[Rfam]
RNA sequence: GGGAUAUGAUGAAGAACAAUUGGUCCGUGUUUCUGAAAAUCAUGUGAUGAUAUCCAAUGAAACACUCAAUCUUCUGAUUCC
Numbered sequence: 001g002g003g004a005u006a007u008g009a010u011g012a013a014g015a016a017c018a019a020u021u022g023g024u025c026c027g028u029g030u031u032u033c034u035g036a037a038a039a040u041c042a043u044g045u046g047a048u049g050a051u052a053u054c055c056a057a058u059g060a061a062a063c064a065c066u067c068a069a070u071c072u073u074c075u076g077a078u079u080c081c
Stems, first nucleotide, its partner, number of pairs: 001081004
This 81-nucleotide RNA sequence from Triticum aestivum belongs to the Rfam family "Small nucleolar RNA SNORD18". The base pairs follow the family's consensus structure, which was predicted with PFOLD. Clan: SNORD18 clan. The family has 16 seed sequences and 2,622 matches in Rfam 15.1.